[Rfam]
RNA sequence: ACUCAUCGAAGCGGUUCACCUCCUCCCGGAUCGCUUCGGUCGGACUGACGACACUCCUCCUCCCAGUUGUCAGUCACAUAUCAAAGCCCGGUGCACCUCCUCCCGCACCGGGCUUUUUGC
Numbered sequence: 001a002c003u004c005a006u007c008g009a010a011g012c013g014g015u016u017c018a019c020c021u022c023c024u025c026c027c028g029g030a031u032c033g034c035u036u037c038g039g040u041c042g043g044a045c046u047g048a049c050g051a052c053a054c055u056c057c058u059c060c061u062c063c064c065a066g067u068u069g070u071c072a073g074u075c076a077c078a079u080a081u082c083a084a085a086g087c088c089c090g091g092u093g094c095a096c097c098u099c100c101u102c103c104c105g106c107a108c109c110g111g112g113c114u115u116u117u118u119g120c
Stems, first nucleotide, its partner, number of pairs: 007038003011034007043075010084115011
The record is a 120-nucleotide RNA from Sinorhizobium sp. BG8, which matches "Alphaproteobacterial ar14" in Rfam. The literature on the family includes a 2012 paper in RNA Biol by del Val et al., "A survey of sRNA families in alpha-proteobacteria".